[Rfam]
RNA sequence: CUAGUCCUUGUCAUGGGUGAGCGUGAACACUCAAUGAGCGUGUAGCGAGAGUGGUCCUGCUGACACAUAUAAACACAUACGCAUCGCCUUCCCACUCCAGUGUGAAGGUCAGGGUGCAAUUUUUGGAAAC
Numbered sequence: 001c002u003a004g005u006c007c008u009u010g011u012c013a014u015g016g017g018u019g020a021g022c023g024u025g026a027a028c029a030c031u032c033a034a035u036g037a038g039c040g041u042g043u044a045g046c047g048a049g050a051g052u053g054g055u056c057c058u059g060c061u062g063a064c065a066c067a068u069a070u071a072a073a074c075a076c077a078u079a080c081g082c083a084u085c086g087c088c089u090u091c092c093c094a095c096u097c098c099a100g101u102g103u104g105a106a107g108g109u110c111a112g113g114g115u116g117c118a119a120u121u122u123u124u125g126g127a128a129a130c
Stems, first nucleotide, its partner, number of pairs: 005019001007017003021060003026055001028053005038046002081117005089106003